The family of this 43-nucleotide RNA sequence from Trachelium caeruleum is "Plastid-ycf3 group II-D1 intron". It is one of the family's seed sequences. Its family is annotated with Group II intron splicing in the Gene Ontology. The source organism's lineage runs through Eukaryota, Viridiplantae, Streptophyta, Magnoliopsida and Trachelium.
RNA sequence: CUCCUUCUGUUGUGUAUCCUCAAUUAAUGCAGCCUCAGAUGCU
Number, nucleotide and partner (000 for none) at each position: 001c000002u000003c000004c000005u000006u000007c000008u000009g024010u023011u022012g021013u000014g000015u000016a000017u000018c000019c000020u000021c012022a011023a010024u009025u000026a000027a000028u000029g000030c000031a043032g042033c041034c000035u000036c000037a000038g000039a000040u000041g033042c032043u031
Source information: Pairs were carried over by alignment from the consensus structure, which was predicted with LocARNA. Rfam's curators write: Plastid rpl16 is a non-coding RNA (ncRNA) recognised in plastids. It was recognised in and intronic region of a ribosome rpl16 gene. Rfam 15.1 lists 1,488 matches to the family in 559 species.